Source information: U2 spliceosomal RNA: a 175-nucleotide RNA from Microcaecilia unicolor. Taxonomically the source falls in Microcaecilia (Eukaryota, Craniata, Euteleostomi, Dipnotetrapodomorpha).

[Rfam]
RNA sequence: AUCAUUUUCAAAAGUAAAAGUAUCUGUUCUUAUCAGUUUAAUAUCUGAUACGUCCCCUAUCUGGGGACCUUAUAUUAAAUGGAUUUUUGGGACAGGGAGACGGAACCGGAGCUUGCUUCGUCCGCUCCGUGCAUCGACCUGGUAUUGCAGUACUUCUAGGCACGGUGCGCUUCCG
Numbered sequence: 001a002u003c004a005u006u007u008u009c010a011a012a013a014g015u016a017a018a019a020g021u022a023u024c025u026g027u028u029c030u031u032a033u034c035a036g037u038u039u040a041a042u043a044u045c046u047g048a049u050a051c052g053u054c055c056c057c058u059a060u061c062u063g064g065g066g067a068c069c070u071u072a073u074a075u076u077a078a079a080u081g082g083a084u085u086u087u088u089g090g091g092a093c094a095g096g097g098a099g100a101c102g103g104a105a106c107c108g109g110a111g112c113u114u115g116c117u118u119c120g121u122c123c124g125c126u127c128c129g130u131g132c133a134u135c136g137a138c139c140u141g142g143u144a145u146u147g148c149a150g151u152a153c154u155u156c157u158a159g160g161c162a163c164g165g166u167g168c169g170c171u172u173c174c175g
Stems, first nucleotide, its partner, number of pairs: 031050006052068006096128004102122002108119004131168006138160005

By type it is a spliceosomal small nuclear RNA. A search with the family's covariance model found it, with a score of 116 bits.